[Rfam]
RNA: Small nucleolar RNA SNORD19
RNA sequence: GAGAAAUGAAGACCACUUCACCAUUCCUUAUUAUUACAGUGAAGACUUCAGAUCCAACUCUGAUCUCACUCUUGUU
Numbered sequence: 001g002a003g004a005a006a007u008g009a010a011g012a013c014c015a016c017u018u019c020a021c022c023a024u025u026c027c028u029u030a031u032u033a034u035u036a037c038a039g040u041g042a043a044g045a046c047u048u049c050a051g052a053u054c055c056a057a058c059u060c061u062g063a064u065c066u067c068a069c070u071c072u073u074g075u076u
Stems, first nucleotide, its partner, number of pairs: 001067004
Dot-bracket structure: ((((...........................................................)))).........